The family of this 96-nucleotide RNA is "Glycine riboswitch aptamer". The base pairs follow the family's consensus structure.
RNA sequence: UGAACCGGAGCGGGAGAGACUCGGCCACAACCCGGACCGAGCGCCGAAGGAGCAACUCUCCCCAGAAUCUCUCAGGCCCUGUACCGCUCCGGUGAG
Numbered sequence: 001u002g003a004a005c006c007g008g009a010g011c012g013g014g015a016g017a018g019a020c021u022c023g024g025c026c027a028c029a030a031c032c033c034g035g036a037c038c039g040a041g042c043g044c045c046g047a048a049g050g051a052g053c054a055a056c057u058c059u060c061c062c063c064a065g066a067a068u069c070u071c072u073c074a075g076g077c078c079c080u081g082u083a084c085c086g087c088u089c090c091g092g093u094g095a096g
Stems, first nucleotide, its partner, number of pairs: 006091008020041004043077003046073002050071003056065002